A member of the RNA family "Glycine riboswitch aptamer" from Comamonas sp. JNW, 112 nucleotides long.
[Rfam]
RNA sequence: GCGUUCCCAGCUGGAGAGAGAUGGCGCCUGGACGCCAUCCACCGAAGGAGCAAGCCCCCAGGCCUCAAAGCGGCGGGUGAAUCUCUCAGGUAAAGCGGACAGCAGGGCAAAC
Numbered sequence: 001g002c003g004u005u006c007c008c009a010g011c012u013g014g015a016g017a018g019a020g021a022u023g024g025c026g027c028c029u030g031g032a033c034g035c036c037a038u039c040c041a042c043c044g045a046a047g048g049a050g051c052a053a054g055c056c057c058c059c060a061g062g063c064c065u066c067a068a069a070g071c072g073g074c075g076g077g078u079g080a081a082u083c084u085c086u087c088a089g090g091u092a093a094a095g096c097g098g099a100c101a102g103c104a105g106g107g108c109a110a111a112c
Base pairs, nucleotide, nucleotide: 006107007106008105010103011102012101013100020039021038022037023036024035025034041091042090043089044087045086048085049084050083054078055077056076057075
The source organism's lineage runs through Bacteria, Pseudomonadati, Pseudomonadota, Betaproteobacteria and Comamonas.